[Rfam]
Background
Shown here is a 349-nucleotide sequence from Streptococcus himalayensis, a member of the family "transfer-messenger RNA". A search with the family's covariance model found it, with a score of 178 bits. Lineage of the source: Bacteria > Bacillati > Bacillota > Bacilli > Streptococcus. Gene Ontology term of the family: RNA catabolic process. The family's RNA type in Rfam is non-coding RNA gene.
RNA sequence: GGGGUCGUUACGGAUUCGACAGGCAUUAUGAGGCAUAUUUUGCAACUCAUCUAGCGGAUGUAAAACGCCAGUUAAAUAUAACUGCAAAAAAUACAAAUUCUUACGCAUUAGCAGCUUAAUAACCUGCCUGCGUGACUAGUAGCGGAUUGCUUGUGUCUGCUGUCUGGUCUUAAAAUAAGCAAGCUACGUUAGAAUUGUGUCAGUAAGUUCUAAAAGAGAUUGACUGAAUCGCUUGGAUGGGGCUUGAGUUUUGUGCCGUACCCAAGUUAAAUCAAGACAUAACCUAUGGUUGUAGAGGAAUAUGUUGGCAGGUGUUUGGACGUGGGUUCGACUCCCACCGGCUCCAUUU
Numbered sequence: 001g002g003g004g005u006c007g008u009u010a011c012g013g014a015u016u017c018g019a020c021a022g023g024c025a026u027u028a029u030g031a032g033g034c035a036u037a038u039u040u041u042g043c044a045a046c047u048c049a050u051c052u053a054g055c056g057g058a059u060g061u062a063a064a065a066c067g068c069c070a071g072u073u074a075a076a077u078a079u080a081a082c083u084g085c086a087a088a089a090a091a092u093a094c095a096a097a098u099u100c101u102u103a104c105g106c107a108u109u110a111g112c113a114g115c116u117u118a119a120u121a122a123c124c125u126g127c128c129u130g131c132g133u134g135a136c137u138a139g140u141a142g143c144g145g146a147u148u149g150c151u152u153g154u155g156u157c158u159g160c161u162g163u164c165u166g167g168u169c170u171u172a173a174a175a176u177a178a179g180c181a182a183g184c185u186a187c188g189u190u191a192g193a194a195u196u197g198u199g200u201c202a203g204u205a206a207g208u209u210c211u212a213a214a215a216g217a218g219a220u221u222g223a224c225u226g227a228a229u230c231g232c233u234u235g236g237a238u239g240g241g242g243c244u245u246g247a248g249u250u251u252u253g254u255g256c257c258g259u260a261c262c263c264a265a266g267u268u269a270a271a272u273c274a275a276g277a278c279a280u281a282a283c284c285u286a287u288g289g290u291u292g293u294a295g296a297g298g299a300a301u302a303u304g305u306u307g308g309c310a311g312g313u314g315u316u317u318g319g320a321c322g323u324g325g326g327u328u329c330g331a332c333u334c335c336c337a338c339c340g341g342c343u344c345c346a347u348u349u
Base pairs, nucleotide, nucleotide: 001345002344003343004342005341006340007339020318021317022316023315024314025313026312027311032306033305034304035303036302037301038300039299040298041297043292044291045290046289047288048060049059050058051057054068055067056066108130111127112126113125114124134169135168136167137166138165139164140162141161142160143159144158145157146156147155149184150183151182152181153180154179189213190212191211192210193209194208195207200227201226202225203224231267232266233265234264235263236262238260239259242256243255246284249281252277322338323337324336325335326334